[Rfam]
A member of the RNA family "Mammalian CPEB3 ribozyme" from Alligator mississippiensis, 77 nucleotides long. The match comes from Rfam's covariance-model search (44 bits). The family's consensus secondary structure is taken from published work.
RNA sequence: AGUUGUAAGUUCAAAGCUAUAGUAAAAGCAUUCACAAUGCAGCCUAUCAGAUUCCAAUGAAAUCUGUGAGUUCUGCU
Numbered sequence: 001a002g003u004u005g006u007a008a009g010u011u012c013a014a015a016g017c018u019a020u021a022g023u024a025a026a027a028g029c030a031u032u033c034a035c036a037a038u039g040c041a042g043c044c045u046a047u048c049a050g051a052u053u054c055c056a057a058u059g060a061a062a063u064c065u066g067u068g069a070g071u072u073c074u075g076c077u
Stems, first nucleotide, its partner, number of pairs: 016043003021077004026072002028040003048066006